[Rfam]
RNA sequence: GUGCCUUAAACUAAUGAGUAAGGAAAAUAACGAGCGUUGGUGACGCUUCGCUCUACUAACGCAGUUUAGUAGAAAUAUUUUAAAGGGUAUAGGUCGUCCCAAGCCCACCUACCUACUUUGUAGGAGGGACAGGAGUCAGCGAUCUACCCU
Number, nucleotide and partner (000 for none) at each position: 001g000002u000003g000004c023005c022006u021007u020008a019009a000010a000011c000012u000013a000014a000015u000016g000017a000018g000019u008020a007021a006022g005023g004024a000025a000026a000027a000028u000029a000030a000031c000032g053033a052034g051035c050036g049037u000038u000039g046040g000041u000042g000043a000044c000045g000046c039047u000048u000049c036050g035051c034052u033053c032054u071055a070056c069057u068058a067059a000060c000061g000062c000063a000064g000065u000066u000067u058068a057069g056070u055071a054072g000073a000074a000075a000076u000077a000078u000079u000080u000081u000082a000083a000084a150085g149086g148087g147088u146089a000090u000091a145092g144093g143094u142095c141096g140097u139098c000099c133100c132101a000102a000103g000104c128105c127106c126107a000108c124109c123110u122111a121112c120113c000114u000115a000116c000117u000118u000119u000120g112121u111122a110123g109124g108125a000126g106127g105128g104129a000130c000131a000132g100133g099134a000135g000136u000137c000138a000139g097140c096141g095142a094143u093144c092145u091146a088147c087148c086149c085150u084
Rfam assigns this 150-nucleotide RNA sequence from Homarus americanus to the family "U12 minor spliceosomal RNA". The family is grouped with related families in Rfam's "U2 clan". The family's RNA type in Rfam is spliceosomal small nuclear RNA. For this family Rfam cites "Pre-mRNA splicing: the discovery of a new spliceosome doubles the challenge" (Tarn and Steitz, Trends Biochem Sci, 1997).